The family of this 66-nucleotide sequence from Chlorobium phaeovibrioides is "Chlorobi-1 RNA". Rfam classes the family as a small RNA.
RNA sequence: GAAAUUCCUCACGCCAGUGAGGUUGAGUUGGUGUAAUGGGGGACACCAACUCUCAGAGAGACGGCU
Numbered sequence: 001g002a003a004a005u006u007c008c009u010c011a012c013g014c015c016a017g018u019g020a021g022g023u024u025g026a027g028u029u030g031g032u033g034u035a036a037u038g039g040g041g042g043a044c045a046c047c048a049a050c051u052c053u054c055a056g057a058g059a060g061a062c063g064g065c066u
Stems, first nucleotide, its partner, number of pairs: 007022006025052010